Small nucleolar RNA snoR14: an 83-nucleotide sequence from Vanilla planifolia.
The source organism's lineage runs through Eukaryota, Petrosaviidae, Orchidaceae, Vanilloideae and Vanilla.
The pairing is the family consensus, mapped onto this sequence.
Its family is annotated with nucleolus and RNA processing in the Gene Ontology.
Rfam classes the family as a C/D-box small nucleolar RNA.

RNA sequence: GUGAGAUGAUGUAGCAUGUUUGUUCUCAAACCUAUGAUUGACAUGCCAUGAUAAAUCAUGAGAUCUCGACAGGUUCUGAUCGC
Numbered sequence: 001g002u003g004a005g006a007u008g009a010u011g012u013a014g015c016a017u018g019u020u021u022g023u024u025c026u027c028a029a030a031c032c033u034a035u036g037a038u039u040g041a042c043a044u045g046c047c048a049u050g051a052u053a054a055a056u057c058a059u060g061a062g063a064u065c066u067c068g069a070c071a072g073g074u075u076c077u078g079a080u081c082g083c
Base pairs, nucleotide, nucleotide: 001083002082003081004080